[Rfam]
RNA sequence: UGAGUCGGCCGGGUGAUCGCGGCGAAAGCUGAGGAAAGUCCGGGCUCCACAGGGCAAGGUGGUGGGUAACGCCCACCCGGGGUGACCCGCGGGAUAGCGCAACAGAAAGUAGACCGCCUAGUUUGGCCUUAGCGCCACACGGGUAAGGGUGAAAGGGUGGUGUAAGAGACCACCGCGACGUCGGCGACGGCGUUGGCAUGGCAAGCCCCACCUGGAGUAAGACCAAGAAAGACGCACUGCGUCUGCGACGGCUUAAGCUGCCCGCCUAGCCGUCGGGUAGGUUGCACGCCGGCGGCGCAAGUCGCCGGGGAAGGCUGCCGGUAACGGCAGUCGCAGAUGGAUGAUCACCGAUUACAGAACCCGGCUUAUAGGCCGGCUCGUCCC
Numbered sequence: 001u002g003a004g005u006c007g008g009c010c011g012g013g014u015g016a017u018c019g020c021g022g023c024g025a026a027a028g029c030u031g032a033g034g035a036a037a038g039u040c041c042g043g044g045c046u047c048c049a050c051a052g053g054g055c056a057a058g059g060u061g062g063u064g065g066g067u068a069a070c071g072c073c074c075a076c077c078c079g080g081g082g083u084g085a086c087c088c089g090c091g092g093g094a095u096a097g098c099g100c101a102a103c104a105g106a107a108a109g110u111a112g113a114c115c116g117c118c119u120a121g122u123u124u125g126g127c128c129u130u131a132g133c134g135c136c137a138c139a140c141g142g143g144u145a146a147g148g149g150u151g152a153a154a155g156g157g158u159g160g161u162g163u164a165a166g167a168g169a170c171c172a173c174c175g176c177g178a179c180g181u182c183g184g185c186g187a188c189g190g191c192g193u194u195g196g197c198a199u200g201g202c203a204a205g206c207c208c209c210a211c212c213u214g215g216a217g218u219a220a221g222a223c224c225a226a227g228a229a230a231g232a233c234g235c236a237c238u239g240c241g242u243c244u245g246c247g248a249c250g251g252c253u254u255a256a257g258c259u260g261c262c263c264g265c266c267u268a269g270c271c272g273u274c275g276g277g278u279a280g281g282u283u284g285c286a287c288g289c290c291g292g293c294g295g296c297g298c299a300a301g302u303c304g305c306c307g308g309g310g311a312a313g314g315c316u317g318c319c320g321g322u323a324a325c326g327g328c329a330g331u332c333g334c335a336g337a338u339g340g341a342u343g344a345u346c347a348c349c350g351a352u353u354a355c356a357g358a359a360c361c362c363g364g365c366u367u368a369u370a371g372g373c374c375g376g377c378u379c380g381u382c383c384c
Base pairs, nucleotide, nucleotide: 001380002379003378004377005376006375007374008373009372010371011369012349013348014347015346016345017344018343020031021030022029023028036367037366038365040364041363042362043361044360045217046216047215048214052283053282055280057213058212059211060210061209062076063075064074065073066072077091078089079088080087081086092208093207097206098205099202100201114148115147116144117143118142121140122139124137125136126135127134156174157173158172159171160170161169175197176195177194178193179192180191181190182189183188221303222302223301231293233291234290274288275287277285278284313332314331315330316329317328318327319326320325
This 384-nucleotide sequence from Propionimicrobium lymphophilum belongs to the Rfam family "Bacterial RNase P class A". Rfam's curators write: Ribonuclease P (RNase P) is a ubiquitous endoribonuclease, found in archaea, bacteria and eukarya as well as chloroplasts and mitochondria. A search with the family's covariance model found it, with a score of 264 bits.